Shown here is an 82-nucleotide RNA, a member of the family "Group II catalytic intron D1-D4-1". The base pairs follow the family's consensus structure. The sequence is in the family's curated seed alignment. About the family: Group II introns are found in rRNA, tRNA and mRNA of organelles in fungi, plants and protists, and also in mRNA in bacteria.
RNA sequence: CUACCUACCUCGUGAGGGGUGGGGAUGGGGCGCCAGAACUCAGCCGAGGCCAUAGUAGAUGCGUCACCGCGUACUGAAGGGC
Numbered sequence: 001c002u003a004c005c006u007a008c009c010u011c012g013u014g015a016g017g018g019g020u021g022g023g024g025a026u027g028g029g030g031c032g033c034c035a036g037a038a039c040u041c042a043g044c045c046g047a048g049g050c051c052a053u054a055g056u057a058g059a060u061g062c063g064u065c066a067c068c069g070c071g072u073a074c075u076g077a078a079g080g081g082c
Stems, first nucleotide, its partner, number of pairs: 001027001004023008039048003049082003058075001060073004